The record is a 134-nucleotide RNA from Ornithorhynchus anatinus, which matches "Small nucleolar RNA SNORA69" in Rfam. The family's RNA type in Rfam is H/ACA-box small nucleolar RNA. Rfam 15.1 lists 808 matches to the family in 584 species. The source organism's lineage runs through Eukaryota, Eumetazoa, Bilateria, Amniota and Ornithorhynchus. Rfam describes the family as follows. U69 is a member of the H/ACA class of small nucleolar RNAs (snoRNAs) which act as guides in the the modification of uridines to pseudouridines. The base pairs follow the family's consensus structure, which was predicted with PFOLD.
[Rfam]
RNA sequence: AAAGCAGGUUGCAAUUACAGUGCUUCAUUCUGUGGGAGUACUGCCAUUACCCUGCUGAGAGUAAAGCUGUGUUAAAUAUUGCUUUGGUCUUCACAUUCAUAGAGGUGAAGCCCUCCAGUUUAACAUGUACACAU
Numbered sequence: 001a002a003a004g005c006a007g008g009u010u011g012c013a014a015u016u017a018c019a020g021u022g023c024u025u026c027a028u029u030c031u032g033u034g035g036g037a038g039u040a041c042u043g044c045c046a047u048u049a050c051c052c053u054g055c056u057g058a059g060a061g062u063a064a065a066g067c068u069g070u071g072u073u074a075a076a077u078a079u080u081g082c083u084u085u086g087g088u089c090u091u092c093a094c095a096u097u098c099a100u101a102g103a104g105g106u107g108a109a110g111c112c113c114u115c116c117a118g119u120u121u122a123a124c125a126u127g128u129a130c131a132c133a134u
Stems, first nucleotide, its partner, number of pairs: 003056006018043009068127010086113002089110006096103002